[Rfam]
A member of the RNA family "Mammalian CPEB3 ribozyme" from Crocodylus porosus, 77 nucleotides long. Lineage of the source: Eukaryota > Sauria > Archosauria > Crocodylidae > Crocodylus. The mammalian CPEB3 ribozyme is a self cleaving RNA located in the second intron of the CPEB3 gene which belongs to a family of genes regulating messenger RNA polyadenylation. This ribozyme is highly conserved and found only in mammals. The CPEB3 ribozyme is structurally and biochemically related to the human hepatitis delta virus (HDV) ribozyme and the HDV ribozyme is proposed to have arisen from the human transcriptome. There is currently only one other known self cleaving ribozyme in mammals, the CoTC motif.
RNA sequence: GGUUGCAAGUUUGUGACCACAGCAGAAGAGUUCAUGACACAGCUCUGUCAGAUUCCAAUGAAUCUGCAAAUUCUGCU
Numbered sequence: 001g002g003u004u005g006c007a008a009g010u011u012u013g014u015g016a017c018c019a020c021a022g023c024a025g026a027a028g029a030g031u032u033c034a035u036g037a038c039a040c041a042g043c044u045c046u047g048u049c050a051g052a053u054u055c056c057a058a059u060g061a062a063u064c065u066g067c068a069a070a071u072u073c074u075g076c077u
Base pairs, nucleotide, nucleotide: 013045015043017042021077022076023075024074025073026072027071028040030038049066050065051064052063053062054061055060